RNA sequence: GUUCCUAUUAUGAUGAAAUAUUGCGGAUGUAAACCUUUUGUCACUGUCGGAAAGCGCAAAACCAUGUCGAUAUUUCCGUUGCCUUCCUUCUGAUUUAUAUGGAA
Numbered sequence: 001g002u003u004c005c006u007a008u009u010a011u012g013a014u015g016a017a018a019u020a021u022u023g024c025g026g027a028u029g030u031a032a033a034c035c036u037u038u039u040g041u042c043a044c045u046g047u048c049g050g051a052a053a054g055c056g057c058a059a060a061a062c063c064a065u066g067u068c069g070a071u072a073u074u075u076c077c078g079u080u081g082c083c084u085u086c087c088u089u090c091u092g093a094u095u096u097a098u099a100u101g102g103a104a
Stems, first nucleotide, its partner, number of pairs: 003103003024078004